A member of the RNA family "Bacillaceae-1 RNA" from Filobacillus milosensis, 68 nucleotides long. It is annotated as a small RNA. It scores 40 bits against the family's covariance model.

RNA sequence: GGCGACUCCUGGUCGAUUAAAGACGGCCACGUCCUGUGGCCAACAUCGACACUUGACCGUCCAGGUCU
Number, nucleotide and partner (000 for none) at each position: 001g000002g000003c000004g000005a000006c000007u000008c000009c000010u000011g000012g050013u049014c048015g047016a046017u045018u000019a000020a000021a000022g000023a000024c000025g000026g040027c039028c038029a037030c036031g000032u000033c000034c000035u000036g030037u029038g028039g027040c026041c000042a000043a000044c000045a017046u016047c015048g014049a013050c012051a000052c000053u000054u000055g067056a066057c065058c064059g000060u000061c000062c000063a000064g058065g057066u056067c055068u000